[Rfam]
RNA sequence: GAGACGUGAUGAACAAACUAUUGGUCCGUGUUUCUGAUCACUGUGACUGAGAAAACAAGUUUCUAUCCUUCUGAUCUC
Numbered sequence: 001g002a003g004a005c006g007u008g009a010u011g012a013a014c015a016a017a018c019u020a021u022u023g024g025u026c027c028g029u030g031u032u033u034c035u036g037a038u039c040a041c042u043g044u045g046a047c048u049g050a051g052a053a054a055a056c057a058a059g060u061u062u063c064u065a066u067c068c069u070u071c072u073g074a075u076c077u078c
Stems, first nucleotide, its partner, number of pairs: 001078004